[Rfam]
RNA sequence: AAAAAGUGGAGCAGCGACCACAUAAAAAAAACGGGCUAACCGAAAAGCCAUACGAGUCGGAAUAAU
Numbered sequence: 001a002a003a004a005a006g007u008g009g010a011g012c013a014g015c016g017a018c019c020a021c022a023u024a025a026a027a028a029a030a031a032c033g034g035g036c037u038a039a040c041c042g043a044a045a046a047g048c049c050a051u052a053c054g055a056g057u058c059g060g061a062a063u064a065a066u
Stems, first nucleotide, its partner, number of pairs: 006021004034049003040060002